[Rfam]
RNA: S15-Halobacteria ribosomal protein leader
RNA sequence: GUAGGAACAGCACAGCUGCAAAUCCGACUCGCGUGCAGUGCGCUUGGGAUUGCGGCAGUGC
Numbered sequence: 001g002u003a004g005g006a007a008c009a010g011c012a013c014a015g016c017u018g019c020a021a022a023u024c025c026g027a028c029u030c031g032c033g034u035g036c037a038g039u040g041c042g043c044u045u046g047g048g049a050u051u052g053c054g055g056c057a058g059u060g061c
Base pairs, nucleotide, nucleotide: 010061011060012059013058015056016055017054018053019052020051021050024048025047031043032042033041034040035039